Overview
This 60-nucleotide RNA from zeta proteobacterium SCGC AB-602-C20 belongs to the Rfam family "Zeta-pan RNA". Taxonomically the source falls in Candidatius Mariprofundia (Bacteria, Pseudomonadati, Pseudomonadota). The family's consensus secondary structure is taken from published work.

[Rfam]
RNA sequence: CACCCUCAAAGACGGUACUGGGCUCCAUUUACAAACAGACUGAAGCGGAAAGGUAUGAUG
Numbered sequence: 001c002a003c004c005c006u007c008a009a010a011g012a013c014g015g016u017a018c019u020g021g022g023c024u025c026c027a028u029u030u031a032c033a034a035a036c037a038g039a040c041u042g043a044a045g046c047g048g049a050a051a052g053g054u055a056u057g058a059u060g
Stems, first nucleotide, its partner, number of pairs: 013042004018038003